[Rfam]
RNA: MIR2629 microRNA precursor family
RNA sequence: UGUUACAUUUUCCUCGGUAGUUAAUUGCUGCCGAUUUCUUCAUAAUUCGGCAGUUAACUGCCGAGGGGGCU
Numbered sequence: 001u002g003u004u005a006c007a008u009u010u011u012c013c014u015c016g017g018u019a020g021u022u023a024a025u026u027g028c029u030g031c032c033g034a035u036u037u038c039u040u041c042a043u044a045a046u047u048c049g050g051c052a053g054u055u056a057a058c059u060g061c062c063g064a065g066g067g068g069g070c071u
Stems, first nucleotide, its partner, number of pairs: 011067002014064017